Selenocysteine insertion sequence 1: a 65-nucleotide sequence from Phocoena sinus.
Taxonomically the source falls in Phocoena (Eukaryota, Opisthokonta, Deuterostomia, Dipnotetrapodomorpha).
The family's RNA type in Rfam is cis-regulatory element.
Its family is annotated with selenocysteine incorporation in the Gene Ontology.
The family's consensus secondary structure is taken from published work.
RNA sequence: CCGGCGUCCAUGAUGGUCUGCCUGAAAACCAGCCCCUGGUGGGGCAGACCCGAGAACCCGGCGUG
Dot-bracket structure: (..((.........(((((((((......(((...)))...)))))))))..........))..)